The family of this 84-nucleotide RNA from Brassica napus is "Small nucleolar RNA snoR110". The base pairs follow the family's consensus structure, which was predicted with WAR. Lineage of the source: Eukaryota > Spermatophyta > eudicotyledons > Pentapetalae > Brassica. The family's RNA type in Rfam is H/ACA-box small nucleolar RNA.
RNA sequence: GCUACAUUUAGUGCCGCCUUUGUCUUUUCAAAGUUUUACCCUUUUUUGUAAGGAUAGUGCUGUUUUACUUGGCGGCAUAAAUCU
Dot-bracket structure: ...........(((((((...((........(((..(..((((......))))..)..))).....))..))))))).......
Numbered sequence: 001g002c003u004a005c006a007u008u009u010a011g012u013g014c015c016g017c018c019u020u021u022g023u024c025u026u027u028u029c030a031a032a033g034u035u036u037u038a039c040c041c042u043u044u045u046u047u048g049u050a051a052g053g054a055u056a057g058u059g060c061u062g063u064u065u066u067a068c069u070u071g072g073c074g075g076c077a078u079a080a081a082u083c084u
Stems, first nucleotide, its partner, number of pairs: 012077007022068002032061003037056001040053004